The family of this 102-nucleotide RNA from Bacillus sp. SG-1 is "SAM riboswitch aptamer (S box leader)". Gene Ontology term of the family: regulation of gene expression. Pairs were carried over by alignment from the consensus structure, which is taken from published work. NCBI's taxonomy places the organism under Bacteria, Bacillati, Caryophanales, Bacillaceae, Bacillus.
RNA sequence: UUCUUAUCGAGAGAGGCAGAGGGACUGGCCCUGUGAAGCCUCGGCAGCGGACUAUUUAUAGUACCGUGCCAAAUCCAGCAAGCAUGUCUUGGGAGAUAAGAA
Dot-bracket structure: ((((((((....(((((...(((.[[[[)))......)))))((((.((.((((....))))..))))))...(]]]]((((.....))))..)))))))))